Background
Small nucleolar RNA U83B: a 92-nucleotide RNA sequence from Callithrix jacchus. It is annotated as a C/D-box small nucleolar RNA. The base pairs follow the family's consensus structure. The family has 21 seed sequences and 966 matches in Rfam 15.1. Taxonomically the source falls in Callithrix (Eukaryota, Deuterostomia, Mammalia, Euarchontoglires).

[Rfam]
RNA sequence: GCUGCUCAGUGAUGAGGCCUGGAAUGUGCGCUGGGCACAGCGCCUGAGACAGACUGCGGACCCAUUCUUGUUGCCUUGCUUCUGAGAACAGC
Numbered sequence: 001g002c003u004g005c006u007c008a009g010u011g012a013u014g015a016g017g018c019c020u021g022g023a024a025u026g027u028g029c030g031c032u033g034g035g036c037a038c039a040g041c042g043c044c045u046g047a048g049a050c051a052g053a054c055u056g057c058g059g060a061c062c063c064a065u066u067c068u069u070g071u072u073g074c075c076u077u078g079c080u081u082c083u084g085a086g087a088a089c090a091g092c
Stems, first nucleotide, its partner, number of pairs: 001092004